Shown here is a 133-nucleotide sequence from Sus scrofa, a member of the family "Small nucleolar RNA SNORA20". About the family: ACA20 is a member of the H/ACA class of snoRNA that guide the sites of modification of uridines to pseudouridines. The family's consensus secondary structure was predicted with ILM. It scores 79 bits against the family's covariance model.
[Rfam]
RNA sequence: CUUCCCAUUUGUUUGCUGCUCUCGUCUCUCCGUGACAUGAGCAGUUAUACGCGUGGGGUAGAGUAGCAUUGGACCGUCGUAAGGGGAGGUGGGGUCGUCACCAUUUCCCCUCUUCUCCAUGGUCUGGACAGCG
Number, nucleotide and partner (000 for none) at each position: 001c000002u000003u058004c057005c056006c055007a054008u053009u000010u000011g000012u000013u000014u000015g045016c044017u043018g042019c041020u040021c039022u037023c000024g000025u035026c034027u000028c000029u000030c000031c000032g000033u000034g026035a025036c000037a022038u000039g021040a020041g019042c018043a017044g016045u015046u000047a000048u000049a000050c000051g000052c000053g008054u007055g006056g005057g004058g003059u000060a000061g000062a000063g000064u000065a000066g000067c000068a000069u127070u126071g125072g124073a123074c122075c121076g120077u000078c000079g118080u000081a116082a000083g000084g000085g000086g112087a111088g110089g109090u000091g107092g106093g105094g104095u103096c000097g000098u000099c000100a000101c000102c000103a095104u094105u093106u092107c091108c000109c089110c088111u087112c086113u000114u000115c000116u081117c000118c079119a000120u076121g075122g074123u073124c072125u071126g070127g069128a000129c000130a000131g000132c000133g000